[Rfam]
RNA sequence: UGCUAUAAAUGAUGAUAAAUUUGAGGGAAUCUCUCUGAACCAAUUGAGGACAUAAUUUUUCUGAUAUAGCA
Numbered sequence: 001u002g003c004u005a006u007a008a009a010u011g012a013u014g015a016u017a018a019a020u021u022u023g024a025g026g027g028a029a030u031c032u033c034u035c036u037g038a039a040c041c042a043a044u045u046g047a048g049g050a051c052a053u054a055a056u057u058u059u060u061c062u063g064a065u066a067u068a069g070c071a
Stems, first nucleotide, its partner, number of pairs: 001071007